[Rfam]
RNA sequence: CCGACGAAAAGGUAAACCCCGGGCAACCGGGGGGCGCAAAGCCGCUCAUCCGGAUCUUCCGGAAAGGAGGGCUGUCGAA
Dot-bracket structure: ...........((...((((((....))))))...))..((((.(((.((((((...))))))...)))))))......
RNA: c-di-GMP-I riboswitch aptamer
Organism: Syntrophotalea carbinolica